[Rfam]
RNA sequence: UGAUGGCAAUGAUGAUUUUUGCACUUACCGUUGUUCCCUGAUAACGUAAAUAUGAAGGUGUUCAGUCACUACCUCAUCUGAUGCCAUCA
Numbered sequence: 001u002g003a004u005g006g007c008a009a010u011g012a013u014g015a016u017u018u019u020u021g022c023a024c025u026u027a028c029c030g031u032u033g034u035u036c037c038c039u040g041a042u043a044a045c046g047u048a049a050a051u052a053u054g055a056a057g058g059u060g061u062u063c064a065g066u067c068a069c070u071a072c073c074u075c076a077u078c079u080g081a082u083g084c085c086a087u088c089a
Base pairs, nucleotide, nucleotide: 002088003087004086005085006084007083
Overview:
A member of the RNA family "Small nucleolar RNA SNORD11B" from Sapajus apella, 89 nucleotides long. A reference for the family is Yang et al. (2006), "snoSeeker: an advanced computational package for screening of guide and orphan snoRNA genes in the human genome", Nucleic Acids Res. The family's consensus secondary structure was predicted with WAR. A search with the family's covariance model found it, with a score of 94 bits. Clan: SNORD11 clan. Its family is annotated with nucleolus and RNA processing in the Gene Ontology. It is annotated as a C/D-box small nucleolar RNA.